This 96-nucleotide sequence from Leptotrichia hofstadii belongs to the Rfam family "azaaromatic riboswitch aptamer (yjdF RNA)". The family's consensus secondary structure is taken from published work.
[Rfam]
RNA sequence: UAAAAUAAAGAUAAAAACACAGUUCUGGUUGGUAGUCCAGACGCAGUAAUGUAAGUAACCUGCCUCCUUAGGUUGUCCAUUCUUUAUUAUAAAUUU
Number, nucleotide and partner (000 for none) at each position: 001u000002a000003a000004a088005a087006u086007a085008a084009a083010g082011a081012u000013a000014a000015a000016a000017a000018c000019a000020c000021a000022g042023u041024u000025c040026u039027g038028g037029u000030u000031g000032g000033u000034a000035g000036u000037c028038c027039a026040g025041a023042c022043g052044c051045a050046g000047u000048a000049a000050u045051g044052u043053a000054a000055g000056u000057a000058a000059c000060c000061u000062g073063c072064c071065u070066c000067c000068u000069u000070a065071g064072g063073u062074u000075g000076u000077c000078c000079a000080u000081u011082c010083u009084u008085u007086a006087u005088u004089a000090u000091a000092a000093a000094u000095u000096u000